[Rfam]
This 79-nucleotide RNA from Pristionchus pacificus belongs to the Rfam family "mir-9/mir-79 microRNA precursor family".
RNA sequence: AACUUCUUCGCUUUGGUUAUCUUGCUUUCUGACUAAAUGUCCAAGGUUCAUAAAGCUAGGUUACCAAAGCUAAGCGGUG
Numbered sequence: 001a002a003c004u005u006c007u008u009c010g011c012u013u014u015g016g017u018u019a020u021c022u023u024g025c026u027u028u029c030u031g032a033c034u035a036a037a038u039g040u041c042c043a044a045g046g047u048u049c050a051u052a053a054a055g056c057u058a059g060g061u062u063a064c065c066a067a068a069g070c071u072a073a074g075c076g077g078u079g
Stems, first nucleotide, its partner, number of pairs: 002078003007073002010070008019061004024056003028052001030050003
The sequence is in the family's curated seed alignment.
Its family is annotated with miRNA-mediated post-transcriptional gene silencing and RISC complex in the Gene Ontology.
The organism belongs to Pristionchus, within Eukaryota.